[Rfam]
RNA sequence: UGUGCAAAUGACGAUAAGAAGACAGGGACAUCAGUACUCCACCGGAGCAUGAUGAUUGUCUUUGGGAAUCUCUCUGAUGCCUG
Numbered sequence: 001u002g003u004g005c006a007a008a009u010g011a012c013g014a015u016a017a018g019a020a021g022a023c024a025g026g027g028a029c030a031u032c033a034g035u036a037c038u039c040c041a042c043c044g045g046a047g048c049a050u051g052a053u054g055a056u057u058g059u060c061u062u063u064g065g066g067a068a069u070c071u072c073u074c075u076g077a078u079g080c081c082u083g
Stems, first nucleotide, its partner, number of pairs: 002082001004080003
RNA: Small nucleolar RNA R44/J54/Z268 family
Organism: Ricinus communis